RNA: Bacillaceae-1 RNA
RNA sequence: UAAGCGUCCUUGCAGGCUAAAACCGUCACAUCCUGUGCCAACGCCGACACUAGUACGUCCUGUACA
Numbered sequence: 001u002a003a004g005c006g007u008c009c010u011u012g013c014a015g016g017c018u019a020a021a022a023c024c025g026u027c028a029c030a031u032c033c034u035g036u037g038c039c040a041a042c043g044c045c046g047a048c049a050c051u052a053g054u055a056c057g058u059c060c061u062g063u064a065c066a
Base pairs, nucleotide, nucleotide: 011049012048015045016044017043025039027037028036029035053065054064055063056062